[Rfam]
Nucleotides: 356
Stems, first nucleotide, its partner, number of pairs: 039054005058208005069201007084187003088184003094110005111169007209224004214235003324338004329355001333351001
Number, partner (000 for none) and nucleotide at each position: 001000u002000c003000a004000c005000u006000u007000c008000a009000c010000a011000u012000u013000a014000a015000u016000c017000u018000u019000c020000g021000c022000g023000u024000g025000c026000c027000u028000a029000u030000a031000u032000a033000g034000g035000g036000c037000c038000u039054g040053c041052u042051c043050g044000c045000u046000u047000c048000g049000g050043c051042g052041g053040g054039c055000u056000a057000u058208g059207a060206c061205g062204a063000u064000a065000a066000a067000u068000u069201g070200c071199g072198g073197c074196g075195u076000g077000c078000a079000a080000u081000a082000g083000g084187c085186a086185c087000g088184g089183c090182g091000g092000a093000c094110c095109c096108g097107g098106g099000g100000g101000c102000a103000g104000u105000a106098c107097c108096c109095g110094g111169c112168g113167g114166c115165u116164c117163c118000a119000c120000c121000a122000u123000u124000g125000c126000g127000u128000u129000c130000g131000c132000c133000u134000c135000c136000a137000c138000c139000g140000a141000g142000c143000a144000a145000g146000u147000g148000g149000g150000c151000g152000g153000a154000c155000g156000c157000a158000u159000u160000g161000u162000u163117g164116g165115g166114g167113c168112c169111g170000a171000a172000c173000c174000a175000g176000g177000a178000u179000c180000g181000a182090c183089g184088c185086g186085u187084g188000u189000u190000g191000a192000a193000a194000g195075g196074c197073g198072c199071u200070g201069u202000u203000u204062u205061c206060g207059u208058c209224c210223g211222g212221g213000c214235u215234g216233a217000g218000u219000a220000a221212c222211c223210c224209g225000u226000u227000a228000a229000a230000g231000g232000c233216u234215c235214a236000a237000a238000a239000c240000c241000a242000a243000u244000a245000a246000g247000u248000g249000c250000c251000a252000a253000c254000g255000a256000u257000a258000a259000c260000g261000a262000a263000g264000c265000a266000c267000u268000u269000g270000c271000u272000c273000u274000c275000g276000c277000u278000g279000c280000g281000u282000a283000a284000u285000g286000u287000g288000a289000c290000g291000g292000c293000c294000u295000a296000g297000c298000g299000g300000c301000c302000u303000g304000a305000a306000u307000u308000u309000a310000c311000a312000a313000a314000g315000c316000u317000a318000a319000g320000a321000a322000c323000g324338c325337g326336g327335u328000u329355g330000g331000u332000c333351c334000g335327a336326c337325c338324g339000g340000u341000c342000a343000a344000c345000a346000g347000a348000a349000c350000g351333g352000a353000u354000a355329c356000g
A member of the RNA family "Alphaproteobacteria transfer-messenger RNA" from Pseudoblastomonas halimionae, 356 nucleotides long. It is annotated as a non-coding RNA gene.